[Rfam]
RNA sequence: UCGGACUGUCGCGACUGGCGUUGAGGUGGAUGACCACCGGGGAGCGACCGACACGGAUUUCGACCGUACGCCUGGGUCGAUGCG
Numbered sequence: 001u002c003g004g005a006c007u008g009u010c011g012c013g014a015c016u017g018g019c020g021u022u023g024a025g026g027u028g029g030a031u032g033a034c035c036a037c038c039g040g041g042g043a044g045c046g047a048c049c050g051a052c053a054c055g056g057a058u059u060u061c062g063a064c065c066g067u068a069c070g071c072c073u074g075g076g077u078c079g080a081u082g083c084g
Base pairs, nucleotide, nucleotide: 004052006050008048009047010046011045012044015041016040017072018071019070020069021068026037027036028035029034061079062078063077064076065075

Shown here is an 84-nucleotide RNA from Microbacterium sp. cf046, a member of the family "ZMP/ZTP riboswitch aptamer (pfl RNA motif)".
Lineage of the source: Bacteria > Actinomycetota > Micrococcales > Microbacteriaceae > Microbacterium.
The base pairs follow the family's consensus structure, which is taken from published work.